[Rfam]
RNA sequence: CGUUACUUGUCGGAGUGCCUUGAGUUUUUGCAACAAAUUUGUUGCAGAUAGUCGGGCUGAGAUCGCAUUUUGCGGGAUCCGUGGACCUGAUCAGGUUAAUGCCUGCGUAGGGAACAAGACAGCAAACGUG
Dot-bracket structure: .....(((((((((.(((((.................................))))......((((...)))))..))))....((((..((((......))))..))))..)))))............